[Rfam]
RNA: Small nucleolar RNA SNORA28
Organism: Callorhinus ursinus
RNA sequence: GAGCAACACUGUGGCAGAGGGUUGAAAUUGUCUGACACAAUAUGAGCAAGAAGGUCUAACCUAUUCCAAUGUUUUCUCCUCUGUGAGACCAACUGUUAGAUAGACUUAAACAGU
Numbered sequence: 001g002a003g004c005a006a007c008a009c010u011g012u013g014g015c016a017g018a019g020g021g022u023u024g025a026a027a028u029u030g031u032c033u034g035a036c037a038c039a040a041u042a043u044g045a046g047c048a049a050g051a052a053g054g055u056c057u058a059a060c061c062u063a064u065u066c067c068a069a070u071g072u073u074u075u076c077u078c079c080u081c082u083g084u085g086a087g088a089c090c091a092a093c094u095g096u097u098a099g100a101u102a103g104a105c106u107u108a109a110a111c112a113g114u
Stems, first nucleotide, its partner, number of pairs: 009044001010039004015034004020029001052107007062100001064098001067095002070092001075088004